RNA: miR-430 microRNA precursor family
RNA sequence: AACAUUACGGCAACAUAGGCACUUAUUUGAAUUCUGAAUACAGUAAGUGCUCAUUGUUGUUGUAUUGUUG
Numbered sequence: 001a002a003c004a005u006u007a008c009g010g011c012a013a014c015a016u017a018g019g020c021a022c023u024u025a026u027u028u029g030a031a032u033u034c035u036g037a038a039u040a041c042a043g044u045a046a047g048u049g050c051u052c053a054u055u056g057u058u059g060u061u062g063u064a065u066u067g068u069u070g
Base pairs, nucleotide, nucleotide: 004066006064007063008062009061010060011059013057014056015054016053018051019050020049021048022047023046025044026043027042